RNA sequence: GUGCUCACAAGAACACUUAUCCAGCCACGUGGCUGCGAUGGGUUCUGGGAACACGUGAGCUAGAGCGUGAGUAUUGCUUUGGGAGUGUCACAUCGCAGGCCACAUGAGACACUACAGUUUUCAAUACAACA
Numbered sequence: 001g002u003g004c005u006c007a008c009a010a011g012a013a014c015a016c017u018u019a020u021c022c023a024g025c026c027a028c029g030u031g032g033c034u035g036c037g038a039u040g041g042g043u044u045c046u047g048g049g050a051a052c053a054c055g056u057g058a059g060c061u062a063g064a065g066c067g068u069g070a071g072u073a074u075u076g077c078u079u080u081g082g083g084a085g086u087g088u089c090a091c092a093u094c095g096c097a098g099g100c101c102a103c104a105u106g107a108g109a110c111a112c113u114a115c116a117g118u119u120u121u122c123a124a125u126a127c128a129a130c131a
Base pairs, nucleotide, nucleotide: 003060004059005058006057007056008055012044013043014042018040019039020038021037025032026031071127073125074124075123076122079117080116081115084113085112086111087110088109089108091106093102095100
Overview
Shown here is a 131-nucleotide RNA sequence from Chloroceryle aenea, a member of the family "Small Cajal body specific RNA 23". By type it is a small Cajal body RNA. Gene Ontology terms of the family: Cajal body, RNA processing and nucleolus. scaRNAs are a specific class of small nuclear RNAs which localise to the Cajal bodies and guide the modification of RNA polymerase II transcribed spliceosomal RNAs U1, U2, U4, U5 and U12. For this family Rfam cites "Cajal body-specific small nuclear RNAs: a novel class of 2'-O-methylation and pseudouridylation guide RNAs" (Darzacq et al., EMBO J, 2002).